[Rfam]
RNA: Small nucleolar RNA Z13/snr52
Organism: Steccherinum ochraceum
RNA sequence: UCAACUUUCAUGAUGAUUCCAAUACGGAUGUAAAGAGCCAAGGCUCGUUCGUCCGAGAGCGCAUAAAACCGUGUGGAUGUUUCCGUUGCCUUCCUUCUGAACUUCUCU
Numbered sequence: 001u002c003a004a005c006u007u008u009c010a011u012g013a014u015g016a017u018u019c020c021a022a023u024a025c026g027g028a029u030g031u032a033a034a035g036a037g038c039c040a041a042g043g044c045u046c047g048u049u050c051g052u053c054c055g056a057g058a059g060c061g062c063a064u065a066a067a068a069c070c071g072u073g074u075g076g077a078u079g080u081u082u083c084c085g086u087u088g089c090c091u092u093c094c095u096u097c098u099g100a101a102c103u104u105c106u107c108u
Base pairs, nucleotide, nucleotide: 004106025085026084027083028082